[Rfam]
RNA sequence: UACAGCGUAGGGAAUGAAGUUCUCCCUUGGGAAACCUAAACUGCUUACAGAGCUGAUGACUUCUACGAUAUU
Numbered sequence: 001u002a003c004a005g006c007g008u009a010g011g012g013a014a015u016g017a018a019g020u021u022c023u024c025c026c027u028u029g030g031g032a033a034a035c036c037u038a039a040a041c042u043g044c045u046u047a048c049a050g051a052g053c054u055g056a057u058g059a060c061u062u063c064u065a066c067g068a069u070a071u072u
Base pairs, nucleotide, nucleotide: 010026011025012024013023016063017062018061019060020059021058043053044052045051
RNA: Fluoride riboswitch aptamer (crcB RNA motif)